[Rfam]
RNA sequence: UGGCUUGGGCGAAAGCUCUGGGGCCAUCGCAGGCGGGGAGCAUAUCC
Number, nucleotide and partner (000 for none) at each position: 001u026002g025003g024004c023005u022006u021007g018008g017009g016010c015011g000012a000013a000014a000015g010016c009017u008018c007019u000020g000021g006022g005023g004024c003025c002026a001027u000028c000029g000030c000031a000032g000033g000034c000035g000036g000037g000038g000039a000040g000041c000042a000043u000044a000045u000046c000047c000
Rfam assigns this 47-nucleotide sequence to the family "DUF3800-XI RNA". About the family: Actinobacteria, Firmicutes, Proteobacteria, Spirochaetes (1 example).